[Rfam]
This 96-nucleotide sequence from Saimiri boliviensis belongs to the Rfam family "Y RNA".
The organism belongs to Saimiri boliviensis, within Eukaryota.
It is annotated as a non-coding RNA gene.
Pairs were carried over by alignment from the consensus structure, which is taken from published work.
RNA sequence: GGCUGGUCUGACAAUAGUGGGUUACCAGAACUCAUUAACAUUAGUGUUACUAAAGUUGGUAUAUAACCCCCCACUGCUACAUUUGACUGGCUUAAA
Numbered sequence: 001g002g003c004u005g006g007u008c009u010g011a012c013a014a015u016a017g018u019g020g021g022u023u024a025c026c027a028g029a030a031c032u033c034a035u036u037a038a039c040a041u042u043a044g045u046g047u048u049a050c051u052a053a054a055g056u057u058g059g060u061a062u063a064u065a066a067c068c069c070c071c072c073a074c075u076g077c078u079a080c081a082u083u084u085g086a087c088u089g090g091c092u093u094a095a096a
Stems, first nucleotide, its partner, number of pairs: 001092008010084002015079001016075006034060002037057002